[Rfam]
RNA sequence: UAAGUAAGACAGACGAUCGCGGCUGCAUGAGAUCGAAAGAUCGCAGGCGAGGAAAGUCCGGGCUUCAAAGGGCAGGAUGCCGGAUAACGUCCGGUGGAGGUGACUCCAAGGCUAGUGCAACAGAAAUGAACCGCCAGGCAUGCCUGGUAAGGGUGGAAGGGCAGUGCAAGAGACUACCGCUUUCCUGGUAACAGGAGAGGCAUAUGUAAACCCCAUUCGAAGCAAAACCGAAUUAAGACUAUGCGGCUGCCCGUCGCGUCUUAGGUAGGUUGCUUGAACCUGAUGGCGACGUCAGGUCUAGAUAGAUGAUCGUUCAACGACAUAACCCGGCUUAUCGUCUUGCUUAAUUU
Numbered sequence: 001u002a003a004g005u006a007a008g009a010c011a012g013a014c015g016a017u018c019g020c021g022g023c024u025g026c027a028u029g030a031g032a033u034c035g036a037a038a039g040a041u042c043g044c045a046g047g048c049g050a051g052g053a054a055a056g057u058c059c060g061g062g063c064u065u066c067a068a069a070g071g072g073c074a075g076g077a078u079g080c081c082g083g084a085u086a087a088c089g090u091c092c093g094g095u096g097g098a099g100g101u102g103a104c105u106c107c108a109a110g111g112c113u114a115g116u117g118c119a120a121c122a123g124a125a126a127u128g129a130a131c132c133g134c135c136a137g138g139c140a141u142g143c144c145u146g147g148u149a150a151g152g153g154u155g156g157a158a159g160g161g162c163a164g165u166g167c168a169a170g171a172g173a174c175u176a177c178c179g180c181u182u183u184c185c186u187g188g189u190a191a192c193a194g195g196a197g198a199g200g201c202a203u204a205u206g207u208a209a210a211c212c213c214c215a216u217u218c219g220a221a222g223c224a225a226a227a228c229c230g231a232a233u234u235a236a237g238a239c240u241a242u243g244c245g246g247c248u249g250c251c252c253g254u255c256g257c258g259u260c261u262u263a264g265g266u267a268g269g270u271u272g273c274u275u276g277a278a279c280c281u282g283a284u285g286g287c288g289a290c291g292u293c294a295g296g297u298c299u300a301g302a303u304a305g306a307u308g309a310u311c312g313u314u315c316a317a318c319g320a321c322a323u324a325a326c327c328c329g330g331c332u333u334a335u336c337g338u339c340u341u342g343c344u345u346a347a348u349u350u
Stems, first nucleotide, its partner, number of pairs: 001346010011335001012314007020049002023046004054333003058330005063222004070252004075218005080094005095109001096107004110213002115211002117207003131152002133148006160178002163175003179201001180199008226271004234263006243257005278297008